[Rfam]
Record summary:
The record is a 214-nucleotide RNA from Candidatus Protofrankia californiensis, which matches "Actinobacteria sRNA Ms_IGR-5" in Rfam. It scores 80 bits against the family's covariance model. The family's RNA type in Rfam is small RNA.
RNA sequence: ACACGGGAAGGGAGGUGGUCUAGUUUUGUGUGAUAAACGGACUCGUGAGGUGACUGUCCGCUAGCCGGUCUCGUGGUCCUCACCCUGCCGGGUGACCUGCGGGCACCGGCACCGGCGAGAACCAGACAGGCACCGGACCUCCGGGCGUCGUCGCUGGUCCCGACGGCCCGUCGUCCCUUCCGUGGACGAUGGAAGCGCCCGGAGGUCUCUUUUU
Numbered sequence: 001a002c003a004c005g006g007g008a009a010g011g012g013a014g015g016u017g018g019u020c021u022a023g024u025u026u027u028g029u030g031u032g033a034u035a036a037a038c039g040g041a042c043u044c045g046u047g048a049g050g051u052g053a054c055u056g057u058c059c060g061c062u063a064g065c066c067g068g069u070c071u072c073g074u075g076g077u078c079c080u081c082a083c084c085c086u087g088c089c090g091g092g093u094g095a096c097c098u099g100c101g102g103g104c105a106c107c108g109g110c111a112c113c114g115g116c117g118a119g120a121a122c123c124a125g126a127c128a129g130g131c132a133c134c135g136g137a138c139c140u141c142c143g144g145g146c147g148u149c150g151u152c153g154c155u156g157g158u159c160c161c162g163a164c165g166g167c168c169c170g171u172c173g174u175c176c177c178u179u180c181c182g183u184g185g186a187c188g189a190u191g192g193a194a195g196c197g198c199c200c201g202g203a204g205g206u207c208u209c210u211u212u213u214u
Stems, first nucleotide, its partner, number of pairs: 014058006059117004064112001067110001069108001135208013148166006